[Rfam]
RNA sequence: UCACUCCCAGAUGUUCCACCGUACGUGUCCGUGAAAGCGGAGGCAGGCGGAGACGACUCGAAACCGAACGCGGCAAAGCACGACCUGGGCGCGUCAGAGUCUCCGA
Numbered sequence: 001u002c003a004c005u006c007c008c009a010g011a012u013g014u015u016c017c018a019c020c021g022u023a024c025g026u027g028u029c030c031g032u033g034a035a036a037g038c039g040g041a042g043g044c045a046g047g048c049g050g051a052g053a054c055g056a057c058u059c060g061a062a063a064c065c066g067a068a069c070g071c072g073g074c075a076a077a078g079c080a081c082g083a084c085c086u087g088g089g090c091g092c093g094u095c096a097g098a099g100u101c102u103c104c105g106a
Stems, first nucleotide, its partner, number of pairs: 006089005021084002024082004028041005048105007058067003068094005